[Rfam]
RNA sequence: AGACUUUGGUUCCCUUUCCCAUUGGACCUCAACACUGGUCUUCGUGGUAAUAAAAGAGGGACAGCAUUGCUGAAGCUGGCUCAGAGCCUUGUACUCUGGUAUGAGCAUGUAGGCUAGAUUCAAAGGGGG
Numbered sequence: 001a002g003a004c005u006u007u008g009g010u011u012c013c014c015u016u017u018c019c020c021a022u023u024g025g026a027c028c029u030c031a032a033c034a035c036u037g038g039u040c041u042u043c044g045u046g047g048u049a050a051u052a053a054a055a056g057a058g059g060g061a062c063a064g065c066a067u068u069g070c071u072g073a074a075g076c077u078g079g080c081u082c083a084g085a086g087c088c089u090u091g092u093a094c095u096c097u098g099g100u101a102u103g104a105g106c107a108u109g110u111a112g113g114c115u116a117g118a119u120u121c122a123a124a125g126g127g128g129g
Stems, first nucleotide, its partner, number of pairs: 004058004019047004025040004076117006090107003

Notes:
This 129-nucleotide sequence from Nannospalax galili belongs to the Rfam family "Small nucleolar RNA SNORA61". The family's RNA type in Rfam is H/ACA-box small nucleolar RNA. Taxonomically the source falls in Nannospalax (Eukaryota, Theria, Euarchontoglires, Rodentia). Rfam's curators write: ACA61 is a member of the H/ACA class of snoRNA that guide the sites of modification of uridines to pseudouridines. It scores 88 bits against the family's covariance model. The family's consensus secondary structure was predicted with PFOLD. Rfam 15.1 lists 881 matches to the family in 421 species.